The record is a 359-nucleotide sequence from Holdemania filiformis, which matches "Bacterial RNase P class B" in Rfam. It scores 295 bits against the family's covariance model. Taxonomically the source falls in Holdemania (Bacteria, Bacillati, Erysipelotrichia, Erysipelotrichaceae).
[Rfam]
RNA sequence: CUAUCCGGGCAAUCGCUGGCUUGACCAAAGCUAGAGGAAAGUCCAUGCUCGCACAAUCUGCGAUGAUUGUAGUGUUUGCGCCGGCCCAAUCAAUAAGACCGGGCAGCCGCAAGGCUGACGGCUGACGAAACCCUAAGGUUCGUUUGAACUAUGGCGGACGUCUGUAACAGUGUCACAGUGACGGAGUUUCCGGGGAAACCCGGAAAGUGGAACGCGAUAAACCCCGCAAGCGAGAAACCCAAAUUUGGUAGGGGAACUUCCAGACCUGAAAUGAAAGGCGCGGAAGCCGUCCGCAAGGACGGAGAUAAAUGGUUGCCGCCCGGUCCGCAGGGAUCGGGAACAGAACAUGGCUUACACGA
Numbered sequence: 001c002u003a004u005c006c007g008g009g010c011a012a013u014c015g016c017u018g019g020c021u022u023g024a025c026c027a028a029a030g031c032u033a034g035a036g037g038a039a040a041g042u043c044c045a046u047g048c049u050c051g052c053a054c055a056a057u058c059u060g061c062g063a064u065g066a067u068u069g070u071a072g073u074g075u076u077u078g079c080g081c082c083g084g085c086c087c088a089a090u091c092a093a094u095a096a097g098a099c100c101g102g103g104c105a106g107c108c109g110c111a112a113g114g115c116u117g118a119c120g121g122c123u124g125a126c127g128a129a130a131c132c133c134u135a136a137g138g139u140u141c142g143u144u145u146g147a148a149c150u151a152u153g154g155c156g157g158a159c160g161u162c163u164g165u166a167a168c169a170g171u172g173u174c175a176c177a178g179u180g181a182c183g184g185a186g187u188u189u190c191c192g193g194g195g196a197a198a199c200c201c202g203g204a205a206a207g208u209g210g211a212a213c214g215c216g217a218u219a220a221a222c223c224c225c226g227c228a229a230g231c232g233a234g235a236a237a238c239c240c241a242a243a244u245u246u247g248g249u250a251g252g253g254g255a256a257c258u259u260c261c262a263g264a265c266c267u268g269a270a271a272u273g274a275a276a277g278g279c280g281c282g283g284a285a286g287c288c289g290u291c292c293g294c295a296a297g298g299a300c301g302g303a304g305a306u307a308a309a310u311g312g313u314u315g316c317c318g319c320c321c322g323g324u325c326c327g328c329a330g331g332g333a334u335c336g337g338g339a340a341c342a343g344a345a346c347a348u349g350g351c352u353u354a355c356a357c358g359a
Base pairs, nucleotide, nucleotide: 004359005358007355008317009316010315011314012313013312014311016034017033018032019031020030021029039353040352041351043350044349045348046347047346048234049233050232051231052230053070054069055068056067057066058065076229077228078227079226080225081102082101083100084099086097103119104117105116106115107114108113120224121223124162125161126160132154133153137150138149139148140147141146170222171221172218173217174216187206188205189204190203191202192201193200194199238253239252240251257286258285259284260283261282287302288301289300290299291298292297319338320337321336322335323334324333325332326331